[Rfam]
RNA: Nitrogen stress-induced RNA 1
Organism: Symplocastrum torsivum
RNA sequence: AGGUAGAUGCACCCUGAUGAUUGCCUUCACCUUAAGCGUGAGGGCUUUUUGUU
Numbered sequence: 001a002g003g004u005a006g007a008u009g010c011a012c013c014c015u016g017a018u019g020a021u022u023g024c025c026u027u028c029a030c031c032u033u034a035a036g037c038g039u040g041a042g043g044g045c046u047u048u049u050u051g052u053u
Base pairs, nucleotide, nucleotide: 002013003012004011023045024044025043026042027041028040029039030038032036